[Rfam]
RNA: Actinobacteria sRNA Ms_IGR-5
Organism: Streptomyces sp. RKND-216
RNA sequence: ACACGAGAAGGGAGGUGGUUCGGUAGUGAGUGAGAUCCGGACGCGUGAGGUGGCUGCGGCCUAGGGGCCGUACGUCACAGCGUGACGCCGGCACCGCCGGCCAAUCCCGAGCAGUCACCCGGCCCGCGGGCUCGUCGGACUCGUCCGACCGACGCCCUUUCGCCCUAGCGGCGGAGGGAGUCGCCCGCGGGCCGUUCCCU
Numbered sequence: 001a002c003a004c005g006a007g008a009a010g011g012g013a014g015g016u017g018g019u020u021c022g023g024u025a026g027u028g029a030g031u032g033a034g035a036u037c038c039g040g041a042c043g044c045g046u047g048a049g050g051u052g053g054c055u056g057c058g059g060c061c062u063a064g065g066g067g068c069c070g071u072a073c074g075u076c077a078c079a080g081c082g083u084g085a086c087g088c089c090g091g092c093a094c095c096g097c098c099g100g101c102c103a104a105u106c107c108c109g110a111g112c113a114g115u116c117a118c119c120c121g122g123c124c125c126g127c128g129g130g131c132u133c134g135u136c137g138g139a140c141u142c143g144u145c146c147g148a149c150c151g152a153c154g155c156c157c158u159u160u161c162g163c164c165c166u167a168g169c170g171g172c173g174g175a176g177g178g179a180g181u182c183g184c185c186c187g188c189g190g191g192c193c194g195u196u197c198c199c200u
Base pairs, nucleotide, nucleotide: 015057016056017055018054019053059102061100062099064097067092068091069090070089120194121193122192123191124190125189126188127187128186129185130184131183134153135152136151137150138149